A member of the RNA family "Metazoan signal recognition particle RNA" from Rhynchophorus ferrugineus, 296 nucleotides long. A search with the family's covariance model found it, with a score of 243 bits.
[Rfam]
RNA sequence: ACUGGGAGCUUGGCGUCUCCUGUAAUCCAGCUACUCGGAGGUCGGUUUCAGUGGAUGGUUUGAGAUCGGGAGUCCUGGCGCAGGGCGUUUCGUGUAGACUGGGUGUCCACACUAAGCACGACGUCAAUAUGGGUACCCUGGGGGAGCUCGGGGUGACCAGGUUGCCUAAGGAGGGACGGACUGGGCCAGAGGGGGAACCAAGCAGCCAAAAGUCCCCGCGUUGUGCAGUAGUGGGAUCGCGCCUGGGAGCGGGAACCCUGUGCUAGCCCGAUCAAUACAGCUAAACCUGGAUCCUU
Numbered sequence: 001a002c003u004g005g006g007a008g009c010u011u012g013g014c015g016u017c018u019c020c021u022g023u024a025a026u027c028c029a030g031c032u033a034c035u036c037g038g039a040g041g042u043c044g045g046u047u048u049c050a051g052u053g054g055a056u057g058g059u060u061u062g063a064g065a066u067c068g069g070g071a072g073u074c075c076u077g078g079c080g081c082a083g084g085g086c087g088u089u090u091c092g093u094g095u096a097g098a099c100u101g102g103g104u105g106u107c108c109a110c111a112c113u114a115a116g117c118a119c120g121a122c123g124u125c126a127a128u129a130u131g132g133g134u135a136c137c138c139u140g141g142g143g144g145a146g147c148u149c150g151g152g153g154u155g156a157c158c159a160g161g162u163u164g165c166c167u168a169a170g171g172a173g174g175g176a177c178g179g180a181c182u183g184g185g186c187c188a189g190a191g192g193g194g195g196a197a198c199c200a201a202g203c204a205g206c207c208a209a210a211a212g213u214c215c216c217c218g219c220g221u222u223g224u225g226c227a228g229u230a231g232u233g234g235g236a237u238c239g240c241g242c243c244u245g246g247g248a249g250c251g252g253g254a255a256c257c258c259u260g261u262g263c264u265a266g267c268c269c270g271a272u273c274a275a276u277a278c279a280g281c282u283a284a285a286c287c288u289g290g291a292u293c294c295u296u
Base pairs, nucleotide, nucleotide: 001042002041003040004021005020006019007018008017010015026039027038028037044294045293047291048290049289050288051287056283057282058281059280060279064273065272066271067270068269069268070267075266076265077264078263079262080261081260082259083258084257085256089253090252091251092250093249095247099246100245101244102243103242104241105240106239107235108234110233111232112231113230114229116226117225118224119223120222121221122220123219124218125164126163127162128161130159131158132157134155135154136153137152138151139150140149141148142147165171166170173216174215175214176213177212182209184207185206186205192199193198
From the family's description: The signal recognition particle (SRP) is a universally conserved ribonucleoprotein. It is involved in the co-translational targeting of proteins to membranes. The eukaryotic SRP consists of a 300-nucleotide 7S RNA and six proteins: SRPs 72, 68, 54, 19, 14, and 9. Rfam 15.1 lists 383,523 matches to the family in 1,221 species. The source organism's lineage runs through Eukaryota, Allotriocarida, Endopterygota, Aparaglossata and Rhynchophorus.